[Rfam]
RNA sequence: GCCUCGACCUGCUGCGGGGAGAUGAGGUGGACGUGGCUGUCGAUGGCCCCCGGGGUGGCGAUCGUGUGCUCGCCGGACAGCACCUCGGUGCCGGGGCCGAUGACGAGCCGCGGGUCGACGCCGUUCUCGGUGUUCGGGUUGCCCGACUUGCCGAUGCCCGCGAUCAGGCCGUUCCUGAUGCCGAUGUCCCCCUUGACGACGCCGAGGACCGGAUCGACGACGACGACGUUGGUGAUCACCAUGUCGAGCGCGCCGCUGUGGUUGGUGGCGUUGGGCGCGGAGCCCAUCCCGUCACGGGC
Numbered sequence: 001g002c003c004u005c006g007a008c009c010u011g012c013u014g015c016g017g018g019g020a021g022a023u024g025a026g027g028u029g030g031a032c033g034u035g036g037c038u039g040u041c042g043a044u045g046g047c048c049c050c051c052g053g054g055g056u057g058g059c060g061a062u063c064g065u066g067u068g069c070u071c072g073c074c075g076g077a078c079a080g081c082a083c084c085u086c087g088g089u090g091c092c093g094g095g096g097c098c099g100a101u102g103a104c105g106a107g108c109c110g111c112g113g114g115u116c117g118a119c120g121c122c123g124u125u126c127u128c129g130g131u132g133u134u135c136g137g138g139u140u141g142c143c144c145g146a147c148u149u150g151c152c153g154a155u156g157c158c159c160g161c162g163a164u165c166a167g168g169c170c171g172u173u174c175c176u177g178a179u180g181c182c183g184a185u186g187u188c189c190c191c192c193u194u195g196a197c198g199a200c201g202c203c204g205a206g207g208a209c210c211g212g213a214u215c216g217a218c219g220a221c222g223a224c225g226a227c228g229u230u231g232g233u234g235a236u237c238a239c240c241a242u243g244u245c246g247a248g249c250g251c252g253c254c255g256c257u258g259u260g261g262u263u264g265g266u267g268g269c270g271u272u273g274g275g276c277g278c279g280g281a282g283c284c285c286a287u288c289c290c291g292u293c294a295c296g297g298g299c
Stems, first nucleotide, its partner, number of pairs: 001299003005296001006293002010162003014158001016074002019071003029050002033048001035047001037045001038043001055067003075152002079148002083145001088142003092138001095134003101129002105126004110121002168283002170279002174275007181267001189228001192225001194223001204215001230264003237258002242255002

Shown here is a 299-nucleotide sequence from Streptosporangium roseum, a member of the family "5' ureB small RNA". Rfam 15.1 lists 4,812 matches to the family in 4,480 species. Pairs were carried over by alignment from the consensus structure, which was predicted with mfold. It scores 42 bits against the family's covariance model.